[Rfam]
RNA sequence: GAUUUAUAAAGAAGCGCGGAGAGAUCAGGCUCUAAGAUGCGCUAGCAACCUGUCAAGUUUUAUUACGAAAAGGUGCUAAUUCCUGGUCCAUUCCGAUGGAAAUCGGAGGAACAUAUAAAUU
Numbered sequence: 001g002a003u004u005u006a007u008a009a010a011g012a013a014g015c016g017c018g019g020a021g022a023g024a025u026c027a028g029g030c031u032c033u034a035a036g037a038u039g040c041g042c043u044a045g046c047a048a049c050c051u052g053u054c055a056a057g058u059u060u061u062a063u064u065a066c067g068a069a070a071a072g073g074u075g076c077u078a079a080u081u082c083c084u085g086g087u088c089c090a091u092u093c094c095g096a097u098g099g100a101a102a103u104c105g106g107a108g109g110a111a112c113a114u115a116u117a118a119a120u121u
Stems, first nucleotide, its partner, number of pairs: 001121008013043005021032003026085004044077004049073002051069001053068002081113001